Shown here is an 86-nucleotide RNA sequence from Amycolatopsis rhizosphaerae, a member of the family "ZMP/ZTP riboswitch aptamer (pfl RNA motif)".
It scores 41 bits against the family's covariance model.
Rfam links the family to the GO terms one-carbon metabolic process and regulation of purine nucleotide biosynthetic process.
RNA sequence: AGGUACAGCAGCGACUGGCGCCAUUAGGGUGGAGCACCACCGGGAAGCGACCGACAAGGCCGGCACCGCGCGCCUGGGUGUGGCCA
Dot-bracket structure: ..[[.[.[..[[..[[(((((.......((((....))))..]]..]]..].]]].......[[[[[..)))))..]]]]].....